[Rfam]
RNA sequence: UCUGUAAAAGGCAAACUCAGGGUAACCUGGGGACGCAAAGCCACGGGUCCAGCGUGCUGGACAGCCGGGUUGUCGAAA
Numbered sequence: 001u002c003u004g005u006a007a008a009a010g011g012c013a014a015a016c017u018c019a020g021g022g023u024a025a026c027c028u029g030g031g032g033a034c035g036c037a038a039a040g041c042c043a044c045g046g047g048u049c050c051a052g053c054g055u056g057c058u059g060g061a062c063a064g065c066c067g068g069g070u071u072g073u074c075g076a077a078a
Stems, first nucleotide, its partner, number of pairs: 011036002016031006039071004044067003047062006